[Rfam]
RNA sequence: UAAAAGGGUCGGUUGGCUAUGUAUGCCACGCCCACCCCUUGUGUUGGUGGGUGCUGUAUGGCUAUCAAGACAUAUGGCCGACAUAAUUUGUGGAACUCUAUAGGGUUGGCUCGCUCGGCCGAUCCUCCGA
Numbered sequence: 001u002a003a004a005a006g007g008g009u010c011g012g013u014u015g016g017c018u019a020u021g022u023a024u025g026c027c028a029c030g031c032c033c034a035c036c037c038c039u040u041g042u043g044u045u046g047g048u049g050g051g052u053g054c055u056g057u058a059u060g061g062c063u064a065u066c067a068a069g070a071c072a073u074a075u076g077g078c079c080g081a082c083a084u085a086a087u088u089u090g091u092g093g094a095a096c097u098c099u100a101u102a103g104g105g106u107u108g109g110c111u112c113g114c115u116c117g118g119c120c121g122a123u124c125c126u127c128c129g130a
Base pairs, nucleotide, nucleotide: 008082009081010080011079012078014028015027016026017025029053030052031051032050033049034048035047036046054077055076056075057074058073059072060071102126103125104124105123106122107121108120109119110118111117
Dot-bracket structure: .......(((((.((((.......))))((((((((.........))))))))(((((((..........))))))))))))...................((((((((((.....))))))))))....